Purine riboswitch aptamer: a 102-nucleotide RNA from Desulfosporosinus sp. Sb-LF. The match comes from Rfam's covariance-model search (83 bits). Its family is annotated with purine nucleobase biosynthetic process in the Gene Ontology.
RNA sequence: AUUGGAAUUUCAUAGGGAGUUCAUAUAACCGCGGAAAUAUGGUCCGCAAGUUUCUACCAGGCUGCCGUAAAUGGCCUGACUAUGAGCGAAAGUGUACCUAGG
Numbered sequence: 001a002u003u004g005g006a007a008u009u010u011c012a013u014a015g016g017g018a019g020u021u022c023a024u025a026u027a028a029c030c031g032c033g034g035a036a037a038u039a040u041g042g043u044c045c046g047c048a049a050g051u052u053u054c055u056a057c058c059a060g061g062c063u064g065c066c067g068u069a070a071a072u073g074g075c076c077u078g079a080c081u082a083u084g085a086g087c088g089a090a091a092g093u094g095u096a097c098c099u100a101g102g
Base pairs, nucleotide, nucleotide: 019087020086021085022084023083024082025081031047032046033045034044035043058078059077060076061075062074063073064072